The record is an 87-nucleotide RNA sequence from Vespula pensylvanica, which matches "mir-276 microRNA precursor family" in Rfam. For this family Rfam cites "Direct sequencing and expression analysis of a large number of miRNAs in Aedes aegypti and a multi-species survey of novel mosquito miRNAs" (Li et al., BMC Genomics, 2009). Rfam 15.1 lists 200 matches to the family in 170 species. Rfam links the family to the GO terms RISC complex and miRNA-mediated post-transcriptional gene silencing. Taxonomically the source falls in Vespula (Eukaryota, Metazoa, Vespidae, Vespinae).

RNA sequence: AUGGUAAAGAUCCAGCAGCGAGGUAUAGAGUUCCUACGUAGUGUUCAGAAAGUAGGAACUUCAUACCGUGCUUUUGGACUUGCCGAA
Numbered sequence: 001a002u003g004g005u006a007a008a009g010a011u012c013c014a015g016c017a018g019c020g021a022g023g024u025a026u027a028g029a030g031u032u033c034c035u036a037c038g039u040a041g042u043g044u045u046c047a048g049a050a051a052g053u054a055g056g057a058a059c060u061u062c063a064u065a066c067c068g069u070g071c072u073u074u075u076g077g078a079c080u081u082g083c084c085g086a087a
Stems, first nucleotide, its partner, number of pairs: 012077003017072004022067005028061010